[Rfam]
Rfam assigns this 149-nucleotide RNA sequence from Populus trichocarpa to the family "MIR480 microRNA precursor family". It is one of the family's seed sequences. NCBI's taxonomy places the organism under Eukaryota, Streptophyta, eudicotyledons, Malpighiales, Populus. Rfam links the family to the GO terms RISC complex and miRNA-mediated post-transcriptional gene silencing. For this family Rfam cites "Novel and mechanical stress-responsive MicroRNAs in Populus trichocarpa that are absent from Arabidopsis" (Lu et al., Plant Cell, 2005).
RNA sequence: UAAUCUGUCCAGGGAAAAUCUUCAUCUAGUUAUGACAAACCCACAUUUGACUACUCAGAAUCACCCGUUAUUGCAAGCUCGACUACAUCAUUGACACUAAAAAACAAAGAACAACUACUAUGUGAACAAUAACUUUUUAAGAUUUAAAU
Numbered sequence: 001u002a003a004u005c006u007g008u009c010c011a012g013g014g015a016a017a018a019u020c021u022u023c024a025u026c027u028a029g030u031u032a033u034g035a036c037a038a039a040c041c042c043a044c045a046u047u048u049g050a051c052u053a054c055u056c057a058g059a060a061u062c063a064c065c066c067g068u069u070a071u072u073g074c075a076a077g078c079u080c081g082a083c084u085a086c087a088u089c090a091u092u093g094a095c096a097c098u099a100a101a102a103a104a105c106a107a108a109g110a111a112c113a114a115c116u117a118c119u120a121u122g123u124g125a126a127c128a129a130u131a132a133c134u135u136u137u138u139a140a141g142a143u144u145u146a147a148a149u
Stems, first nucleotide, its partner, number of pairs: 004147001007144001008142002012138001014136002018130002023122003027117005